[Rfam]
RNA sequence: UAGGCAUAAUGAUGAAUGUUUAUUGUCAUCCGAUUCGUGACGAAUCAAGACCUCCUACUCAUUCUGA
Numbered sequence: 001u002a003g004g005c006a007u008a009a010u011g012a013u014g015a016a017u018g019u020u021u022a023u024u025g026u027c028a029u030c031c032g033a034u035u036c037g038u039g040a041c042g043a044a045u046c047a048a049g050a051c052c053u054c055c056u057a058c059u060c061a062u063u064c065u066g067a
Stems, first nucleotide, its partner, number of pairs: 006062002009059001026043002030039001

Small nucleolar RNA Z105: a 67-nucleotide sequence from Microthlaspi erraticum. The family's RNA type in Rfam is C/D-box small nucleolar RNA. The source organism's lineage runs through Eukaryota, Euphyllophyta, Magnoliopsida, Brassicales and Microthlaspi. Rfam 15.1 lists 621 matches to the family in 204 species.